[Rfam]
RNA sequence: CAACGUGCUCCGGGGUCGGUGAAAAUCCGAGCCGGCGGUGACAGUCCGCGACCCAGCGGUGGAUCGGCAGAUCCGCUUCUGGUUGAUGGGGUGGAACUCCCCAACCGACGGUGAAAGUCCGGAUGGGAGGCAGCACGUAU
Numbered sequence: 001c002a003a004c005g006u007g008c009u010c011c012g013g014g015g016u017c018g019g020u021g022a023a024a025a026u027c028c029g030a031g032c033c034g035g036c037g038g039u040g041a042c043a044g045u046c047c048g049c050g051a052c053c054c055a056g057c058g059g060u061g062g063a064u065c066g067g068c069a070g071a072u073c074c075g076c077u078u079c080u081g082g083u084u085g086a087u088g089g090g091g092u093g094g095a096a097c098u099c100c101c102c103a104a105c106c107g108a109c110g111g112u113g114a115a116a117g118u119c120c121g122g123a124u125g126g127g128a129g130g131c132a133g134c135a136c137g138u139a140u
Stems, first nucleotide, its partner, number of pairs: 003138007010129001017029003031118002033107002035049004044105002053082004087103005109121003
RNA: FMN riboswitch aptamer (RFN element)
Organism: Propioniferax innocua